[Rfam]
RNA sequence: UUAAUUCAAAUUUGUAUGCAGUUGGAACGUUUGCGUACGUUUGCCGCUAGGGGCGCUGUUCGAACUGCAUAAAAAUUCGAGUUA
Numbered sequence: 001u002u003a004a005u006u007c008a009a010a011u012u013u014g015u016a017u018g019c020a021g022u023u024g025g026a027a028c029g030u031u032u033g034c035g036u037a038c039g040u041u042u043g044c045c046g047c048u049a050g051g052g053g054c055g056c057u058g059u060u061c062g063a064a065c066u067g068c069a070u071a072a073a074a075a076u077u078c079g080a081g082u083u084a
Stems, first nucleotide, its partner, number of pairs: 009077005015071002018068001020066004025061005034052001036050001039047002
Shown here is an 84-nucleotide RNA from Bombyx mori, a member of the family "mir-2807 microRNA precursor family". Gene Ontology terms of the family: RISC complex and miRNA-mediated post-transcriptional gene silencing. The base pairs follow the family's consensus structure, which was predicted with RNAalifold.